Shown here is a 96-nucleotide RNA from Vibrio sp. V28_P6S34P95, a member of the family "Qrr RNA".
Pairs were carried over by alignment from the consensus structure, which is taken from published work.
A reference for the family is Lenz et al. (2004), "The Small RNA Chaperone Hfq and Multiple Small RNAs Control Quorum Sensing in Vibrio harveyi and Vibrio cholerae", Cell.
This family represents a set of small RNAs (the Qrr RNAs) that are thought to be involved in the regulation of quorum sensing in Vibrio species. It is believed that these RNAs, guided by a protein, Hfq, can mediate the destabilisation of the quorum-sensing master regulators LuxR/HapR mRNAs.
The match comes from Rfam's covariance-model search (83 bits).

RNA sequence: CGACCCUAACGGGUCACCUAGCCAACUGACGUUGUUAGUGAAUACUAUAUUCAUACUAUAUCAGCCAAUAGACCUUUUUCUAUUGGCUAUUUUUUU
Numbered sequence: 001c002g003a004c005c006c007u008a009a010c011g012g013g014u015c016a017c018c019u020a021g022c023c024a025a026c027u028g029a030c031g032u033u034g035u036u037a038g039u040g041a042a043u044a045c046u047a048u049a050u051u052c053a054u055a056c057u058a059u060a061u062c063a064g065c066c067a068a069u070a071g072a073c074c075u076u077u078u079u080c081u082a083u084u085g086g087c088u089a090u091u092u093u094u095u096u
Stems, first nucleotide, its partner, number of pairs: 002015005033060003038054007065086008